6S / SsrS RNA: a 180-nucleotide RNA sequence from Anaerobacillus arseniciselenatis. About the family: E. coli 6S RNA was the first non coding RNA to be sequenced, but its function was unknown until recently. It consists of 184 nucleotides that fold into an extended hairpin structure with a large single-stranded internal bulge. The 6S RNA specifically associates with RNA polymerase holoenzyme containing the sigma70 specificity factor. This interaction represses expression from a sigma70-dependent promoter during stationary phase. 6S RNA homologs have recently been identified in most bacterial genomes. Many Gram-positive species have two copies of 6S RNA. In Bacillus subtilis, both copies appear to interact with RNA polymerase holoenzyme containing the housekeeping sigma factor and be expressed during different stages of growth. In many proteobacteria, 6S RNA may be processed from a transcript encoding homologs of the E. coli YgfA protein which is a putative 5-formyltetrahydrofolate cycloligase activity. The family's RNA type in Rfam is non-coding RNA gene.

RNA sequence: AGAGUCCUGAGAUGUACGUAGGAUGCUAUACGUUUUGAGCCAACAUUUUUAGAAUGGGAGCCUGAAGUUUUGACUUGGCGUGCAAGCCUUCUUGAAAGGAAGUAUUAAAAGUUGAACAGGGCACCCACCUGCGGAGAGCAGGUUCAAAACUAAGCAAUUUAACGGCAUAUUGGGGCUCUA
Numbered sequence: 001a002g003a004g005u006c007c008u009g010a011g012a013u014g015u016a017c018g019u020a021g022g023a024u025g026c027u028a029u030a031c032g033u034u035u036u037g038a039g040c041c042a043a044c045a046u047u048u049u050u051a052g053a054a055u056g057g058g059a060g061c062c063u064g065a066a067g068u069u070u071u072g073a074c075u076u077g078g079c080g081u082g083c084a085a086g087c088c089u090u091c092u093u094g095a096a097a098g099g100a101a102g103u104a105u106u107a108a109a110a111g112u113u114g115a116a117c118a119g120g121g122c123a124c125c126c127a128c129c130u131g132c133g134g135a136g137a138g139c140a141g142g143u144u145c146a147a148a149a150c151u152a153a154g155c156a157a158u159u160u161a162a163c164g165g166c167a168u169a170u171u172g173g174g175g176c177u178c179u180a
Stems, first nucleotide, its partner, number of pairs: 002178009012168004017164003032150010056126003060122004070115007082103002087099004
NCBI's taxonomy places the organism under Bacteria, Bacillati, Bacilli, Caryophanales, Anaerobacillus.